[Rfam]
RNA sequence: GAUUUAUAAAGAAGAGGCUAGAGAAUGGGCUCAUAGAACCUCUGGCAACCUAUCCCAAGCGCAACCGGGACAAGGUGCUAACUCCCACCUAAAUCAAUUUAGGAAAUAUAAACU
Numbered sequence: 001g002a003u004u005u006a007u008a009a010a011g012a013a014g015a016g017g018c019u020a021g022a023g024a025a026u027g028g029g030c031u032c033a034u035a036g037a038a039c040c041u042c043u044g045g046c047a048a049c050c051u052a053u054c055c056c057a058a059g060c061g062c063a064a065c066c067g068g069g070a071c072a073a074g075g076u077g078c079u080a081a082c083u084c085c086c087a088c089c090u091a092a093a094u095c096a097a098u099u100u101a102g103g104a105a106a107u108a109u110a111a112a113c114u
Stems, first nucleotide, its partner, number of pairs: 001114001003112006013043005021032003026087004044079004049075002053070003083106001088103006
RNA: SAM riboswitch aptamer (S box leader)